[Rfam]
RNA sequence: GGGGGCGUUACGGAUUCGACAGGUAUAGUUCGCGCUUGAAUUGCGUUUCGUAGGUUACGUCUACGUUAAAACGUUAACAGUUAAAUAUAACUGCUAAAAACGAAAACACUUUCGCUUUAGCUGCCUAAAAACAGCGGGUGAAGAUCCUUCCGGUAUCGCCCAUGUACCGGGUAAGGGUCUCAAAUUAAGUGGGAUACGCUAACCGUUUCCGUCUGCAAUAGUUAGAAGAGAUCAUCAGACUAGCGAAGAAGUAUGUUUGUUUUGUGUCAGAUAUCUUAGCGAAACCUCAAACAUAAAACUAUGGACGUAGAUAUUGAAGUGGCGAUAUGCUUGGACGCGGGUUCGACUCCCGCCGCCUCCAUUA
Dot-bracket structure: (((((((............((((((((.(...(((((.(((..((((((((((.[.[[[[))))).....]]]].].......................................((((.((((.........)))).))))((((((((((((((..[[[[[))))))))..)))))).........]]]]].....(((((.(((...[..[..))).)))))............]..].((.((((.((..(.(.[[[[.[[).)..)).)))).))............]].]]]]...))))).....))).)))))..).))))))))...(((((.......))))))))))))....
The family of this 364-nucleotide sequence from Vagococcus fessus is "transfer-messenger RNA". The source organism's lineage runs through Bacteria, Bacillati, Lactobacillales, Enterococcaceae and Vagococcus. A search with the family's covariance model found it, with a score of 210 bits. A reference for the family is Williams and Bartel (1996), "Phylogenetic analysis of tmRNA secondary structure", RNA.